[Rfam]
RNA sequence: UCGCGUUCUCAGGGCGGGGUGAAAGUCCCCACCGGCGGUUACAGCCCGCGAGCGGCCCUCCUGUGAGGGUGUCAGCAGAUCCGGUGAAAUUCCGGGGCCGACGGUGAAAGUCCGGAUGGGAGAGAGCGGCA
Number, nucleotide and partner (000 for none) at each position: 001u000002c000003g000004c128005g127006u126007u125008c124009u123010c122011a000012g000013g000014g000015c000016g000017g029018g028019g027020u000021g000022a000023a000024a000025g000026u000027c019028c018029c017030c000031a111032c110033c100034g099035g049036c048037g047038g046039u000040u000041a000042c000043a000044g098045c097046c038047c037048g036049c035050g000051a000052g076053c075054g000055g000056c000057c000058c000059u000060c000061c000062u000063g000064u000065g000066a000067g000068g000069g000070u000071g000072u000073c000074a000075g053076c052077a000078g000079a000080u096081c095082c094083g093084g092085u000086g000087a000088a000089a000090u000091u000092c084093c083094g082095g081096g080097g045098c044099c034100g033101a000102c114103g113104g112105u000106g000107a000108a000109a000110g032111u031112c104113c103114g102115g000116a000117u000118g000119g000120g000121a000122g010123a009124g008125a007126g006127c005128g004129g000130c000131a000
Shown here is a 131-nucleotide RNA from Rubricella aquisinus, a member of the family "FMN riboswitch aptamer (RFN element)".
Rfam describes the family as follows. The RFN element is a highly conserved domain that is found frequently in the 5'-untranslated regions of prokaryotic mRNAs that encode for flavin mononucleotide (FMN) biosynthesis and transport proteins. This element is a metabolite-dependent riboswitch that directly binds FMN in the absence of proteins.
Its family is annotated with FMN binding in the Gene Ontology.
NCBI's taxonomy places the organism under Bacteria, Pseudomonadota, Alphaproteobacteria, Rhodobacterales, Rubricella.